RNA: c-di-AMP riboswitch aptamer (ydaO/yuaA leader)
RNA sequence: CGGUCACGACCGCCGACAUCGGAAACGGAGCUCGUCAACCACGACGAGUCCCUCGGGGUGAAGCUCCGCACUGCGGAGCCGGGCAACCUCUCAGCCCGAACCCGACAGCUGACUUCGUCGGCGCGUGGAGAGAGGAAAC
Numbered sequence: 001c002g003g004u005c006a007c008g009a010c011c012g013c014c015g016a017c018a019u020c021g022g023a024a025a026c027g028g029a030g031c032u033c034g035u036c037a038a039c040c041a042c043g044a045c046g047a048g049u050c051c052c053u054c055g056g057g058g059u060g061a062a063g064c065u066c067c068g069c070a071c072u073g074c075g076g077a078g079c080c081g082g083g084c085a086a087c088c089u090c091u092c093a094g095c096c097c098g099a100a101c102c103c104g105a106c107a108g109c110u111g112a113c114u115u116c117g118u119c120g121g122c123g124c125g126u127g128g129a130g131a132g133a134g135g136a137a138a139c
Stems, first nucleotide, its partner, number of pairs: 011123004019023001025118006033055002056103003064078004081097004